Small nucleolar RNA Z118/Z121/Z120: a 94-nucleotide RNA sequence from Dichanthelium oligosanthes.
The source organism's lineage runs through Eukaryota, Streptophyta, Spermatophyta, Magnoliopsida and Dichanthelium.
The literature on the family includes a 2003 paper in Nucleic Acids Res by Chen et al., "The high diversity of snoRNAs in plants: identification and comparative study of 120 snoRNA genes from Oryza sativa".

Nucleotides: 094
Stems, first nucleotide, its partner, number of pairs: 001094002004091004036054006
Number, partner (000 for none) and nucleotide at each position: 001094g002093a003000a004091g005090u006089g007088c008000u009000g010000u011000g012000a013000u014000g015000a016000c017000u018000u019000g020000u021000a022000a023000g024000g025000a026000c027000g028000g029000u030000a031000u032000c033000u034000g035000a036054g037053c038052g039051a040050g041049g042000c043000a044000u045000u046000u047000a048000u049041u050040c051039u052038c053037g054036c055000a056000u057000g058000a059000u060000u061000a062000u063000a064000c065000c066000u067000g068000a069000u070000c071000u072000g073000a074000g075000a076000c077000a078000a079000a080000a081000u082000g083000u084000c085000u086000g087000a088007g089006c090005a091004u092000a093002u094001u